malK-III RNA: a 96-nucleotide RNA. Rfam classes the family as a cis-regulatory element.
RNA sequence: GCCCGGAACGUCACGUACGGGACCCGUCCACGUCCGCGCCGACGCGCGGCGAGAUGCAGGGGUCCGCGAUGCCGCACCGGUCGGAGGGUUGGCAUG
Numbered sequence: 001g002c003c004c005g006g007a008a009c010g011u012c013a014c015g016u017a018c019g020g021g022a023c024c025c026g027u028c029c030a031c032g033u034c035c036g037c038g039c040c041g042a043c044g045c046g047c048g049g050c051g052a053g054a055u056g057c058a059g060g061g062g063u064c065c066g067c068g069a070u071g072c073c074g075c076a077c078c079g080g081u082c083g084g085a086g087g088g089u090u091g092g093c094a095u096g
Base pairs, nucleotide, nucleotide: 014068015067016066020065021064022063023062024061025060026055027054028053034049035048036047037046038045039044